[Rfam]
RNA sequence: CAUGAAACUACAACCGUUUUUCUUCGCAUUCUUUUUUACCUUCCCAUGACCGGGGGGCAAUUCGUCGUGUAAGAAUGAAUGCGAAGACGAACAACAAAGCCUCCCAAGCGGAGGCUUUUUUUUU
Numbered sequence: 001c002a003u004g005a006a007a008c009u010a011c012a013a014c015c016g017u018u019u020u021u022c023u024u025c026g027c028a029u030u031c032u033u034u035u036u037u038a039c040c041u042u043c044c045c046a047u048g049a050c051c052g053g054g055g056g057g058c059a060a061u062u063c064g065u066c067g068u069g070u071a072a073g074a075a076u077g078a079a080u081g082c083g084a085a086g087a088c089g090a091a092c093a094a095c096a097a098a099g100c101c102u103c104c105c106a107a108g109c110g111g112a113g114g115c116u117u118u119u120u121u122u123u124u
Stems, first nucleotide, its partner, number of pairs: 016092004021087011033075002036072004042055004056066003096118009

The record is a 124-nucleotide sequence from [Pantoea] beijingensis, which matches "Phenylalanine leader peptide" in Rfam. A search with the family's covariance model found it, with a score of 117 bits. Taxonomically the source falls in Erwinia (Bacteria, Pseudomonadota, Gammaproteobacteria, Enterobacterales). Gene Ontology term of the family: cellular amino acid metabolic process. It is annotated as a cis-regulatory leader.